[Rfam]
RNA sequence: GUCAGCUACGGGUAUUCUUGGGUUAAUAAUGCUUUUUAGAUAUUAUUGCUUGAGAAUACACGUAGCUGCC
Numbered sequence: 001g002u003c004a005g006c007u008a009c010g011g012g013u014a015u016u017c018u019u020g021g022g023u024u025a026a027u028a029a030u031g032c033u034u035u036u037u038a039g040a041u042a043u044u045a046u047u048g049c050u051u052g053a054g055a056a057u058a059c060a061c062g063u064a065g066c067u068g069c070c
Stems, first nucleotide, its partner, number of pairs: 001070001003068003008063003012059012025047007032039002